[Rfam]
RNA sequence: AAGCCAAGGGGUCGGGACGCUCUGUGUGAUGGAGUGACCUAGGGGUACAGGGAGUACCUCCUUCACGGACCAGGCUCAGCGAAAG
Numbered sequence: 001a002a003g004c005c006a007a008g009g010g011g012u013c014g015g016g017a018c019g020c021u022c023u024g025u026g027u028g029a030u031g032g033a034g035u036g037a038c039c040u041a042g043g044g045g046u047a048c049a050g051g052g053a054g055u056a057c058c059u060c061c062u063u064c065a066c067g068g069a070c071c072a073g074g075c076u077c078a079g080c081g082a083a084a085g
Stems, first nucleotide, its partner, number of pairs: 002076004010071004014040003018036001020034006042060007
RNA: ivy-DE RNA
Organism: Stutzerimonas stutzeri